[Rfam]
c-di-GMP-II-GAG riboswitch aptamer: an 84-nucleotide RNA sequence. The sequence is in the family's curated seed alignment. Pairs were carried over by alignment from the consensus structure, which is taken from published work.

Nucleotides: 084
Base pairs, nucleotide, nucleotide: 002083003082004081005080007078008077010075012059013058014057021053022052023051024050025049026048028046037071038070040066041065042064043063
Number, partner (000 for none) and nucleotide at each position: 001000c002083c003082g004081u005080g006000a007078c008077g009000g010075g011000g012059g013058g014057c015000u016000u017000u018000g019000a020000c021053g022052c023051g024050c025049g026048g027000c028046c029000c030000a031000u032000a033000c034000u035000c036000a037071g038070g039000c040066c041065g042064c043063c044000g045000g046028g047000a048026c049025c050024g051023c052022g053021c054000c055000g056000a057014g058013c059012c060000a061000c062000u063043g064042g065041c066040g067000a068000g069000a070038c071037c072000g073000a074000c075010c076000g077008c078007g079000c080005c081004g082003u083002g084000u